[Rfam]
RNA sequence: AGUCAUGGUUGCUAUUCUCGCGAAAUAGUAAUUGUGAUCAGCGGUGCGGGUGUGUUGGCGCACAUUCGCACCGCGCU
Numbered sequence: 001a002g003u004c005a006u007g008g009u010u011g012c013u014a015u016u017c018u019c020g021c022g023a024a025a026u027a028g029u030a031a032u033u034g035u036g037a038u039c040a041g042c043g044g045u046g047c048g049g050g051u052g053u054g055u056u057g058g059c060g061c062a063c064a065u066u067c068g069c070a071c072c073g074c075g076c077u
Stems, first nucleotide, its partner, number of pairs: 002038007011029006041074003045070011
The family of this 77-nucleotide RNA sequence from Klebsiella michiganensis is "SymR antitoxin". Gene Ontology term of the family: mRNA binding.